The record is a 140-nucleotide RNA from Sitta europaea, which matches "Small Cajal body specific RNA 11" in Rfam.
RNA sequence: GCGUCCUGACCUUAGCCUGGCUGUUCCCCUCACCGAACUGUGGUGGUGGGGUCUGGGGGUGGACGCAGAUCAGCUUGCUCUCAUAUUAGGAGGGCUGCCACAAAGACAUGUGCAAGCCCUUAAAGGCAGGAGAGGACACU
Numbered sequence: 001g002c003g004u005c006c007u008g009a010c011c012u013u014a015g016c017c018u019g020g021c022u023g024u025u026c027c028c029c030u031c032a033c034c035g036a037a038c039u040g041u042g043g044u045g046g047u048g049g050g051g052u053c054u055g056g057g058g059g060u061g062g063a064c065g066c067a068g069a070u071c072a073g074c075u076u077g078c079u080c081u082c083a084u085a086u087u088a089g090g091a092g093g094g095c096u097g098c099c100a101c102a103a104a105g106a107c108a109u110g111u112g113c114a115a116g117c118c119c120u121u122a123a124a125g126g127c128a129g130g131a132g133a134g135g136a137c138a139c140u
Base pairs, nucleotide, nucleotide: 002065003064004063005062006061010058011057023052024051025050026048028046029045031043078134079133080132081131082130086125087124090121091120092119093118094117095116096115097113098112100111101110102109
Dot-bracket structure: .(((((...((...........((((.((.(...........).)).).)))....))..)))))............(((((...((..(((((((((.(((......))))).)))))))..))....)))))......
Annotation:
A reference for the family is Darzacq et al. (2002), "Cajal body-specific small nuclear RNAs: a novel class of 2'-O-methylation and pseudouridylation guide RNAs", EMBO J. The base pairs follow the family's consensus structure, which was predicted with RNAalifold. Rfam classes the family as a small Cajal body RNA. It scores 67 bits against the family's covariance model. NCBI's taxonomy places the organism under Eukaryota, Bilateria, Amniota, Sauria, Sitta.